[Rfam]
A member of the RNA family "Small nucleolar RNA snR37" from Huiozyma naganishii, 430 nucleotides long.
By type it is an H/ACA-box small nucleolar RNA.
Nucleotides: 430
Stems, first nucleotide, its partner, number of pairs: 008051001011048003014041007022033004057260007068180004072175003077170005083164005091148006097141006150159003200246006209237003213231005272423005280417008288349009351409003357404003361396006367385007
Number, partner (000 for none) and nucleotide at each position: 001000a002000u003000c004000a005000u006000c007000a008051g009000u010000a011048g012047u013046g014041g015040u016039u017038a018037a019036u020035a021000c022033u023032a024031u025030c026000u027000c028000a029000a030025g031024a032023u033022a034000a035020u036019a037018u038017u039016a040015a041014u042000u043000a044000a045000u046013u047012a048011c049000a050000u051008u052000u053000u054000u055000a056000u057260g058259g059258a060257a061256a062255c063254c064000u065000a066000a067000c068180g069179g070178u071177u072175u073174g074173a075000u076000u077170a078169u079168u080167c081166g082000a083164g084163u085162u086161c087160u088000c089000c090000c091148g092147u093146c094145g095144u096143g097141g098140u099139g100138a101137g102136u103000u104000u105000u106000g107000c108000u109000g110000g111000a112000g113000g114000a115000a116000g117000u118000c119000c120000a121000u122000u123000c124000c125000g126000a127000a128000g129000g130000u131000g132000a133000g134000u135000u136102g137101c138100u139099u140098a141097u142000c143096u144095g145094c146093g147092a148091u149000u150159a151158g152157u153000u154000a155000a156000u157152a158151c159150u160087a161086g162085g163084a164083c165000g166081c167080g168079a169078a170077u171000u172000u173074u174073u175072a176000a177071a178070g179069c180068c181000a182000u183000c184000g185000a186000u187000a188000u189000a190000a191000c192000c193000c194000a195000u196000a197000g198000c199000u200246g201245a202244a203243u204242g205241g206000c207000a208000c209237u210236u211235g212000a213231c214230c215229a216228c217227c218000c219000c220000c221000a222000a223000a224000c225000a226000a227217g228216g229215u230214g231213g232000c233000u234000a235211c236210a237209g238000g239000u240000a241205u242204c243203a244202u245201u246200u247000c248000g249000u250000u251000u252000c253000c254063g255062g256061u257060u258059u259058c260057u261000u262000a263000g264000a265000a266000u267000a268000a269000c270000a271000u272423u273422u274421a275420u276419u277000u278000u279000a280417u281416g282415a283414g284413g285412g286411a287410g288349u289348c290347c291346u292345c293344u294343c295342u296341u297000c298000c299000c300000g301000c302000c303000a304000a305000g306000a307000c308000a309000g310000a311000c312000u313000a314000u315000a316000u317000u318000u319000u320000u321000a322000u323000a324000u325000u326000u327000u328000g329000c330000u331000u332000g333000g334000c335000a336000a337000u338000g339000u340000u341296g342295g343294g344293g345292g346291a347290g348289g349288a350000a351409a352408g353407u354000g355000c356000a357404u358403g359402u360000c361396u362395c363394c364393a365392g366391a367385g368384g369383g370382u371381g372380a373379u374000a375000u376000a377000a378000u379373g380372u381371u382370g383369c384368c385367u386000g387000a388000g389000a390000g391366u392365u393364u394363g395362g396361a397000a398000u399000u400000c401000u402359g403358c404357a405000g406000u407353g408352c409351u410287c411286u412285u413284c414283u415282u416281c417280a418000u419276g420275g421274u422273a423272a424000g425000a426000c427000a428000u429000u430000u
Lineage of the source: Eukaryota > Fungi > Saccharomycetes > Saccharomycetaceae > Huiozyma naganishii. For this family Rfam cites "Genome-wide searching for pseudouridylation guide snoRNAs: analysis of the Saccharomyces cerevisiae genome" (Schattner et al., Nucleic Acids Res, 2004). Pairs were carried over by alignment from the consensus structure, which was predicted with WAR.